SAM riboswitch aptamer (S box leader): a 106-nucleotide RNA from Marinisporobacter balticus. The source organism's lineage runs through Bacteria, Bacillota, Clostridia, Peptostreptococcales and Marinisporobacter. The match comes from Rfam's covariance-model search (89 bits).
RNA sequence: UUUCUAUCCAGAGUGGUGGAGGGACUGGCCCUGUGAAACCCAGCAACCGGCAUUUAAAAUGUACUCGGUGCUAAAUCCUGCAGAAUUUUAUUCUGAAAGAUGGAAU
Numbered sequence: 001u002u003u004c005u006a007u008c009c010a011g012a013g014u015g016g017u018g019g020a021g022g023g024a025c026u027g028g029c030c031c032u033g034u035g036a037a038a039c040c041c042a043g044c045a046a047c048c049g050g051c052a053u054u055u056a057a058a059a060u061g062u063a064c065u066c067g068g069u070g071c072u073a074a075a076u077c078c079u080g081c082a083g084a085a086u087u088u089u090a091u092u093c094u095g096a097a098a099g100a101u102g103g104a105a106u
Base pairs, nucleotide, nucleotide: 002105003104004103005102006101007100008099013041015040016039017038021031022030023029025080027078028077042072043071044070045069047068048067049064050062051061052060076098081095082094083093084092085091086090
Dot-bracket structure: .(((((((....(.(((...(((.[.[[)))......))))((((.((((((.......))).)..))))))...(]].]((((((...))))))..)))))))).